[Rfam]
The record is a 98-nucleotide RNA sequence from Clostridium neonatale, which matches "Purine riboswitch aptamer" in Rfam. Rfam describes the family as follows. Riboswitches are metabolite binding domains within certain messenger RNAs that serve as precision sensors for their corresponding targets. Lineage of the source: Bacteria > Bacillati > Bacillota > Eubacteriales > Clostridium.
RNA sequence: AAUCAGAUAUAUUUAAUAACUCGUAUAUACCUUGAAUAAGGCAGGGCGUAUCUACCGGAAACCGUAAACUUCCGACUAUGAGUGGUAUUAGUAUUGGC
Numbered sequence: 001a002a003u004c005a006g007a008u009a010u011a012u013u014u015a016a017u018a019a020c021u022c023g024u025a026u027a028u029a030c031c032u033u034g035a036a037u038a039a040g041g042c043a044g045g046g047c048g049u050a051u052c053u054a055c056c057g058g059a060a061a062c063c064g065u066a067a068a069c070u071u072c073c074g075a076c077u078a079u080g081a082g083u084g085g086u087a088u089u090a091g092u093a094u095u096g097g098c
Stems, first nucleotide, its partner, number of pairs: 019083007030046005056074005